This 102-nucleotide sequence from Rummeliibacillus stabekisii belongs to the Rfam family "Purine riboswitch aptamer". From the family's description: Riboswitches are metabolite binding domains within certain messenger RNAs that serve as precision sensors for their corresponding targets. The match comes from Rfam's covariance-model search (85 bits). The organism belongs to Rummeliibacillus, within Bacteria.
[Rfam]
RNA sequence: UAACAAUAAAUGAACGACCCUCAUAUAUGUUCGAAGAUAUGGUUCGAAUGUUUCUACCAAACUACCGUAAACAGUUUGACUAUGAAGGCAAUUUAGACGAUG
Numbered sequence: 001u002a003a004c005a006a007u008a009a010a011u012g013a014a015c016g017a018c019c020c021u022c023a024u025a026u027a028u029g030u031u032c033g034a035a036g037a038u039a040u041g042g043u044u045c046g047a048a049u050g051u052u053u054c055u056a057c058c059a060a061a062c063u064a065c066c067g068u069a070a071a072c073a074g075u076u077u078g079a080c081u082a083u084g085a086a087g088g089c090a091a092u093u094u095a096g097a098c099g100a101u102g
Stems, first nucleotide, its partner, number of pairs: 018088002021085005029049007058078006